Rfam assigns this 171-nucleotide RNA sequence from Enterococcus faecalis to the family "M-box riboswitch aptamer (ykoK leader)".
Rfam's curators write: M-box riboswitch, also know as ykoK leader is described as a metaloregulatory RNA that sense divalent metals and function as a genetic control element of genes related to divalent metal transport in bacteria. It was first reported upstream of the B.subtilis ykoK gene and genes with related functions in other bacteria.
The organism belongs to Enterococcus faecalis, within Bacteria.
The sequence is in the family's curated seed alignment.
Pairs were carried over by alignment from the consensus structure.

[Rfam]
RNA sequence: AAUAAGAUUUGUUAGGUGAGGCUCCUAUACAAACAUAGGCUACUGCCCAAAAAUGUCGAGAGACGCCAAUGGGUAGAACAGGAACUGUCGAAUGAAGGCUUUUCUUAAGGUAGCUAAAAGCAAUCGCUUUUUACGUUGUAUAGUGCUAAAGCUCAACGAUAAGAACGAUUA
Numbered sequence: 001a002a003u004a005a006g007a008u009u010u011g012u013u014a015g016g017u018g019a020g021g022c023u024c025c026u027a028u029a030c031a032a033a034c035a036u037a038g039g040c041u042a043c044u045g046c047c048c049a050a051a052a053a054u055g056u057c058g059a060g061a062g063a064c065g066c067c068a069a070u071g072g073g074u075a076g077a078a079c080a081g082g083a084a085c086u087g088u089c090g091a092a093u094g095a096a097g098g099c100u101u102u103u104c105u106u107a108a109g110g111u112a113g114c115u116a117a118a119a120g121c122a123a124u125c126g127c128u129u130u131u132u133a134c135g136u137u138g139u140a141u142a143g144u145g146c147u148a149a150a151g152c153u154c155a156a157c158g159a160u161a162a163g164a165a166c167g168a169u170u171a
Base pairs, nucleotide, nucleotide: 006166008164009163010162011157012156013096015153016152017151020147021146022145025143026142027141028140029139030138031137032136039114040113041112042111043110045074046073047072048071049070054065055064056063057062081105082104083103084102087099088098089097116131117130118129